[Rfam]
RNA: Molybdenum/Tungsten riboswitch aptamer (Moco RNA motif)
RNA sequence: CCGGUUAACGUACACUCAAGCCUGAAUGCCUACGUCGGUGGAUAGGGGAUUCAGGCCGUAGCCUACGCGCUGCCAGGGUGCAGGAAGAAAUGACUGCAUCUCCCGAAUUGGAAAGGUGUUCUGGUGUCACAAUU
Numbered sequence: 001c002c003g004g005u006u007a008a009c010g011u012a013c014a015c016u017c018a019a020g021c022c023u024g025a026a027u028g029c030c031u032a033c034g035u036c037g038g039u040g041g042a043u044a045g046g047g048g049a050u051u052c053a054g055g056c057c058g059u060a061g062c063c064u065a066c067g068c069g070c071u072g073c074c075a076g077g078g079u080g081c082a083g084g085a086a087g088a089a090a091u092g093a094c095u096g097c098a099u100c101u102c103c104c105g106a107a108u109u110g111g112a113a114a115g116g117u118g119u120u121c122u123g124g125u126g127u128c129a130c131a132a133u134u
Base pairs, nucleotide, nucleotide: 003128004127012119013118014117015116017115020056021055022054023053024052025051026050027049029047030046034043035042036041058073059072060071061070062069076101077100078099079098080097081096082095083094086091102111103110